[Rfam]
RNA sequence: CAGCCCCCAUGACGGCCUGCCUUGAAGCCAGCUUCCUGGUGAGGCAGGCCCGAAAGCUUGGCGUG
Dot-bracket structure: ((..(........((((((((((.....(((....)))..))))))))))..........)..))
RNA: Selenocysteine insertion sequence 1